[Rfam]
Shown here is a 467-nucleotide part of an RNA from an uncultured marine eukaryote, a member of the family "Eukaryotic small subunit ribosomal RNA". Its Rfam clan is "SSU clan".
RNA sequence: AAUGCUGUUGCUGUUAAAAAGCUCGUAGUUCGAUAAGGAUUGAUUCUGGUUCAGAUUCAGUGCUUCGCAGCUUUGCUGCAAUGGAGAAUUGGACCUGAGAAUAUCGUGCCAUAGUCAGUUCCUACGGGUUCUGCUGUGGUACUAAGCUCUAGUUUACCGGUAUUAACAGGGAUGAACGGAGCAGUGUGUACUGGCUCGCGAGAGGUGAAAUUCUUAGACCGUGCCAGACAAACGUAAGCGAAGGCAUUCUGCAAGUAUAUCUUCAGUAAUCAAGAACGAGAGUGCAGGGAUCGAAGAUGAUCAGCUACCGUCGUAGUCUGCUACCGUAAACGAUGCGAACUUGGGAUCAGCCGUCGCCAAUCUUUUUCGAUUACCAGGCUGGAACCUACUUACUUCUCCUAGCGCGAAAGCUUUAAGUUUAUGCGUUCAGGGGAGAGUACAGUUGCAAGGCUGAAACUUAAAGGAAU
Dot-bracket structure: ..........(((.....(.(.((...(((..........................................................................................................................................(((.((.((...((((.(((..(((((.((...(((......)))......)).))))).))....(..((....)))).))))..)).))..)))...)))...)).)....((((((....(...((((.........))))...).)))).))..........((((((..((..((((((...(.................)..))))))..)).................((....)).....)))....))))))).((.......((((....)))).....))........